[Rfam]
RNA sequence: GGCUCUGGUUAGUUUUGCUGGUUUGCAUUCAGCGUUCGGUCAGAAUUCGGCUGUGCAAAUCCAUGCAAAACUGACCGUAGCU
Numbered sequence: 001g002g003c004u005c006u007g008g009u010u011a012g013u014u015u016u017g018c019u020g021g022u023u024u025g026c027a028u029u030c031a032g033c034g035u036u037c038g039g040u041c042a043g044a045a046u047u048c049g050g051c052u053g054u055g056c057a058a059a060u061c062c063a064u065g066c067a068a069a070a071c072u073g074a075c076c077g078u079a080g081c082u
Stems, first nucleotide, its partner, number of pairs: 003080002006077013020062002022059007031052003
RNA: mir-19 microRNA precursor family